RNA sequence: CUCACCACUAUACCUGAUCAGAUCUGUUGGCUGCUAUAAUCCAGUGGUGAACUAAGGAUAAGCCUACCCCAGUGUAGGAAGCAAGGUUGUUCUUCAUGUAGAUGACUAUGUGUCAAAAGCAUAGGAAUAUCC
Numbered sequence: 001c002u003c004a005c006c007a008c009u010a011u012a013c014c015u016g017a018u019c020a021g022a023u024c025u026g027u028u029g030g031c032u033g034c035u036a037u038a039a040u041c042c043a044g045u046g047g048u049g050a051a052c053u054a055a056g057g058a059u060a061a062g063c064c065u066a067c068c069c070c071a072g073u074g075u076a077g078g079a080a081g082c083a084a085g086g087u088u089g090u091u092c093u094u095c096a097u098g099u100a101g102a103u104g105a106c107u108a109u110g111u112g113u114c115a116a117a118a119g120c121a122u123a124g125g126a127a128u129a130u131c132c
Stems, first nucleotide, its partner, number of pairs: 005047005017035001019033003023030002063125004068119001077114002082110002085107003090102002
Dot-bracket structure: ....(((((.......(.(((.((....))))).).......)))))...............((((.(........((...((.(((..((.........))..))).))..))....)..)))).......